Small nucleolar RNA SNORA15: a 137-nucleotide RNA from Salmo trutta. A search with the family's covariance model found it, with a score of 59 bits. NCBI's taxonomy places the organism under Eukaryota, Craniata, Teleostomi, Clupeocephala, Salmo. The literature on the family includes a 2001 paper in EMBO J by Huttenhofer et al., "RNomics: an experimental approach that identifies 201 candidates for novel, small, non-messenger RNAs in mouse". Rfam links the family to the GO terms nucleolus and RNA processing.
[Rfam]
RNA sequence: GCAUGGACGAGUUCUGUGUUACUCUGUCAGUAGUAGAUGCAAUCAGACACCAUGCAAAAACAUCCUUUCACUACUUCUUUACUAAAGGUGAGUGCUGACCUGUGCCUCACCUACUCCUUGGAGAAGUGAAUACAAGU
Numbered sequence: 001g002c003a004u005g006g007a008c009g010a011g012u013u014c015u016g017u018g019u020u021a022c023u024c025u026g027u028c029a030g031u032a033g034u035a036g037a038u039g040c041a042a043u044c045a046g047a048c049a050c051c052a053u054g055c056a057a058a059a060a061c062a063u064c065c066u067u068u069c070a071c072u073a074c075u076u077c078u079u080u081a082c083u084a085a086a087g088g089u090g091a092g093u094g095c096u097g098a099c100c101u102g103u104g105c106c107u108c109a110c111c112u113a114c115u116c117c118u119u120g121g122a123g124a125a126g127u128g129a130a131u132a133c134a135a136g137u
Base pairs, nucleotide, nucleotide: 001055002054003053004052005051006050015041016040017039018038019037067130068129069128071126072125074123075122076121077120084118087115088114089113090112092110093109094108
Description
Rfam describes the family as follows. ACA15 is a member of the H/ACA class of snoRNA that guide the sites of modification of uridines to pseudouridines. By type it is an H/ACA-box small nucleolar RNA.